RNA sequence: GUUUGUGGAUGAUGAGACAAACAAAUCACAGUUAUCCCUGUCUGAUACAAAUUCUGUUGAAAAGUUUGUGAUCUGACCAAAC
Dot-bracket structure: (((((.(.....................................................................))))))
Shown here is an 82-nucleotide sequence, a member of the family "Small nucleolar RNA R38".
Rfam's curators write: snoR38 is a C/D box small nucleolar RNA conserved across yeast, human, Arabidopsis and rice. It is encoded in the intron of elongation factor-1 gamma in both pombe and cerevisiae. snoR38 guides the methylation of 2'-O-ribose sites in 28S rRNA.
Gene Ontology terms of the family: nucleolus and RNA processing.